[Rfam]
RNA: Group II catalytic intron D1-D4-2
RNA sequence: GAGGGCAGGCCCCUCGGUUCCGGCAACCAGAUGCAGGAAUCAAACCGCCCUAUGCGGCACGUAUUAAGAGUGCAUGUCGUGAGCGAUAGGGAAAAGGCAGUACGAUUAACUGUCAGGU
Dot-bracket structure: (((((.....)))))((((((.(((......))).))))))....(.((((((((.(((.((((.....)))).))).)).....))))))....((((((.......))))))..).
Numbered sequence: 001g002a003g004g005g006c007a008g009g010c011c012c013c014u015c016g017g018u019u020c021c022g023g024c025a026a027c028c029a030g031a032u033g034c035a036g037g038a039a040u041c042a043a044a045c046c047g048c049c050c051u052a053u054g055c056g057g058c059a060c061g062u063a064u065u066a067a068g069a070g071u072g073c074a075u076g077u078c079g080u081g082a083g084c085g086a087u088a089g090g091g092a093a094a095a096g097g098c099a100g101u102a103c104g105a106u107u108a109a110c111u112g113u114c115a116g117g118u
Stems, first nucleotide, its partner, number of pairs: 001015005016041006023034003046117001048091006054080002057077003061073004096114006